RNA: Small nucleolar RNA snoR77
RNA sequence: AGGCGGCCCCUUUUCGAUAAUCGAUGGAAAGAGAGGUGUUAAUUAGCUCAUAAAAUGAAUUCGUUUUACGCUCUUAGAUUCACCGAAAUAUACUUACAUCUUUAAAGCUGGUCUAGUAAUCUUAAGCACAAU
Dot-bracket structure: .((((.((((((((((........))))))).).))))))........................(((..(.(...(((((..(....((........)).......)..)))))....).)..)))......